[Rfam]
About this RNA:
This 83-nucleotide RNA sequence from Lachnospiraceae bacterium KM106-2 belongs to the Rfam family "c-di-GMP-I riboswitch aptamer". Gene Ontology term of the family: cyclic-di-GMP binding. The base pairs follow the family's consensus structure, which is taken from published work. The match comes from Rfam's covariance-model search (69 bits). The literature on the family includes a 2007 paper in Nucleic Acids Res by Weinberg et al., "Identification of 22 candidate structured RNAs in bacteria using the CMfinder comparative genomics pipeline".
RNA sequence: UUGAUGAAUCGGCAAAACUAGGGAAACCUAGUGACGCAAAGCUAUAGGGGUUAAGGUGAAAACUAUACCAGCCAGUUGCAAGU
Numbered sequence: 001u002u003g004a005u006g007a008a009u010c011g012g013c014a015a016a017a018c019u020a021g022g023g024a025a026a027c028c029u030a031g032u033g034a035c036g037c038a039a040a041g042c043u044a045u046a047g048g049g050g051u052u053a054a055g056g057u058g059a060a061a062a063c064u065a066u067a068c069c070a071g072c073c074a075g076u077u078g079c080a081a082g083u
Stems, first nucleotide, its partner, number of pairs: 012037002017032006040077004047073002049069003056063002